[Rfam]
Rfam assigns this 87-nucleotide RNA sequence from Cynoglossus semilaevis to the family "mir-22 microRNA precursor family". The match comes from Rfam's covariance-model search (88 bits).

RNA sequence: GGCUAACCUACAGCAGUUCUUCACUGGCAAGCUUUAUGUGUUCCUGUACCAACUAAAGCUGCCAGCUGAAGAACUGUUGUGGUGAGC
Numbered sequence: 001g002g003c004u005a006a007c008c009u010a011c012a013g014c015a016g017u018u019c020u021u022c023a024c025u026g027g028c029a030a031g032c033u034u035u036a037u038g039u040g041u042u043c044c045u046g047u048a049c050c051a052a053c054u055a056a057a058g059c060u061g062c063c064a065g066c067u068g069a070a071g072a073a074c075u076g077u078u079g080u081g082g083u084g085a086g087c
Stems, first nucleotide, its partner, number of pairs: 006083002010080003017073006026063003030060007